[Rfam]
RNA: Actino-pnp RNA
RNA sequence: GCCGGUCCUCGGUAGUGGCCCCCGGGAUACGAAAGAGACGAACCCCGGGUGCUUCGAUCGAAGACCGGC
Numbered sequence: 001g002c003c004g005g006u007c008c009u010c011g012g013u014a015g016u017g018g019c020c021c022c023c024g025g026g027a028u029a030c031g032a033a034a035g036a037g038a039c040g041a042a043c044c045c046c047g048g049g050u051g052c053u054u055c056g057a058u059c060g061a062a063g064a065c066c067g068g069c
Stems, first nucleotide, its partner, number of pairs: 001069007009061005017053003021049006028042001